[Rfam]
The family of this 99-nucleotide sequence from Sorghum bicolor is "Small nucleolar RNA Z122". Lineage of the source: Eukaryota > Viridiplantae > Streptophyta > Panicoideae > Sorghum. Rfam links the family to the GO terms nucleolus and RNA processing. By type it is a C/D-box small nucleolar RNA. It is one of the family's seed sequences.
RNA sequence: UUUGGGAAGUGACGAAUAACUAAAUUCAGAUAUCCAUCCUAUUAUGGAUUUAUGUGUGUACUGAUAUGAUGAAAAUUUGCACGUCAGUCUGAUCCCAUA
Numbered sequence: 001u002u003u004g005g006g007a008a009g010u011g012a013c014g015a016a017u018a019a020c021u022a023a024a025u026u027c028a029g030a031u032a033u034c035c036a037u038c039c040u041a042u043u044a045u046g047g048a049u050u051u052a053u054g055u056g057u058g059u060a061c062u063g064a065u066a067u068g069a070u071g072a073a074a075a076u077u078u079g080c081a082c083g084u085c086a087g088u089c090u091g092a093u094c095c096c097a098u099a
Stems, first nucleotide, its partner, number of pairs: 001099001003097005